RNA sequence: AGGUGGUUUGGAUUGGAGGCAGGGAUGAGGCAGAGCAUGGGAUGGGGCCAUCAACAGACAAAACUCCGUUGCUUCCACUGCAAAAACAUGUUUGUGAGAGGUUUUGAGGCAAAAAAAAAAAAAAAGGUUGAGAGCUCCGCCCCCACCGGUGUUGUUGCUCCCUCCCCUGCACUGCCUCUUCCCUGGCUCCCUGCCGCCGCUGGCCC
Dot-bracket structure: ...............(((.((((((..((((((.(((.(.(...((.................................................................................................................))...)).))).))))))..)))))).))).................
Rfam assigns this 206-nucleotide sequence from Setaria viridis to the family "MIR408 microRNA precursor family". The organism belongs to Setaria, within Eukaryota. Its family is annotated with miRNA-mediated post-transcriptional gene silencing and RISC complex in the Gene Ontology. The literature on the family includes a 2004 paper in Plant Cell by Sunkar and Zhu, "Novel and stress-regulated microRNAs and other small RNAs from Arabidopsis".